[Rfam]
A member of the RNA family "RAGATH-18 RNA", 62 nucleotides long. Actinobacteria, Firmicutes, Fusobacteria, Thermotogae (1 example).
RNA sequence: CCUAUGGAGUGUUAUAGCAAACAGGAAUAGGUUCGCCAAAACUGGACAUUAUGAAGUAGGAA
Numbered sequence: 001c002c003u004a005u006g007g008a009g010u011g012u013u014a015u016a017g018c019a020a021a022c023a024g025g026a027a028u029a030g031g032u033u034c035g036c037c038a039a040a041a042c043u044g045g046a047c048a049u050u051a052u053g054a055a056g057u058a059g060g061a062a
Stems, first nucleotide, its partner, number of pairs: 001060005009049005022044003030037002
The base pairs follow the family's consensus structure, which is taken from published work.